[Rfam]
RNA sequence: GUUGCAAUAGGGCUUUUCAUAGGGCUGCUGGCGUGCAUUUAAAACUGCGAGCUGCCUUGUGAAGGGCAUUGUUGCUAG
Number, nucleotide and partner (000 for none) at each position: 001g000002u000003u000004g075005c074006a073007a072008u071009a070010g069011g000012g067013c066014u065015u064016u000017u062018c061019a060020u059021a000022g000023g056024g055025c000026u000027g000028c051029u050030g000031g048032c047033g000034u000035g000036c000037a000038u000039u000040u000041a000042a000043a000044a000045c000046u000047g032048c031049g000050a029051g028052c000053u000054g000055c024056c023057u000058u000059g020060u019061g018062a017063a000064g015065g014066g013067c012068a000069u010070u009071g008072u007073u006074g005075c004076u000077a000078g000
mir-980 microRNA precursor family: a 78-nucleotide sequence from Sitophilus oryzae. Taxonomically the source falls in Sitophilus (Eukaryota, Mandibulata, Allotriocarida, Cucujiformia). The base pairs follow the family's consensus structure, which was predicted with RNAalifold. A search with the family's covariance model found it, with a score of 64 bits.